[Rfam]
RNA sequence: CGCUCACUAUCGCUUAAUUCUAUUUAGAAGCGGGGGAACCAUUUCUGGGGUGAAUCCUUCACAGGUAAAUGUUUUGUGAAGGUAGGGUUACUUUUCGACCCGAAUCCGUCAGCUAACUUCGUAAGCGUUGAAAGAGAGGAAUU
Numbered sequence: 001c002g003c004u005c006a007c008u009a010u011c012g013c014u015u016a017a018u019u020c021u022a023u024u025u026a027g028a029a030g031c032g033g034g035g036g037a038a039c040c041a042u043u044u045c046u047g048g049g050g051u052g053a054a055u056c057c058u059u060c061a062c063a064g065g066u067a068a069a070u071g072u073u074u075u076g077u078g079a080a081g082g083u084a085g086g087g088u089u090a091c092u093u094u095u096c097g098a099c100c101c102g103a104a105u106c107c108g109u110c111a112g113c114u115a116a117c118u119u120c121g122u123a124a125g126c127g128u129u130g131a132a133a134g135a136g137a138g139g140a141a142u143u
Stems, first nucleotide, its partner, number of pairs: 011127004018029003030122006040047002048107003056082010085101004
Annotation
This 143-nucleotide sequence from Desulfosporosinus sp. Sb-LF belongs to the Rfam family "c-di-AMP riboswitch aptamer (ydaO/yuaA leader)". The match comes from Rfam's covariance-model search (107 bits). Taxonomically the source falls in Desulfosporosinus (Bacteria, Bacillota, Eubacteriales, Desulfitobacteriaceae). Gene Ontology terms of the family: regulation of gene expression and cyclic-di-AMP binding.